mir-875 microRNA precursor family: a 73-nucleotide RNA from Mus musculus. Rfam links the family to the GO terms RISC complex and miRNA-mediated post-transcriptional gene silencing.

RNA sequence: CUGUGGUACUAUACCUCAGUUUUAUCAGGUGUUCAUUAAAAUCACCUGAAAAUACUGAGGCUAUGUUUCACUG
Numbered sequence: 001c002u003g004u005g006g007u008a009c010u011a012u013a014c015c016u017c018a019g020u021u022u023u024a025u026c027a028g029g030u031g032u033u034c035a036u037u038a039a040a041a042u043c044a045c046c047u048g049a050a051a052a053u054a055c056u057g058a059g060g061c062u063a064u065g066u067u068u069c070a071c072u073g
Base pairs, nucleotide, nucleotide: 003071004070005069006068008066009065014060015059016058017057018056019055020054022052023051025049026048027047028046029045030044031043
The family's consensus secondary structure was predicted with RNAalifold.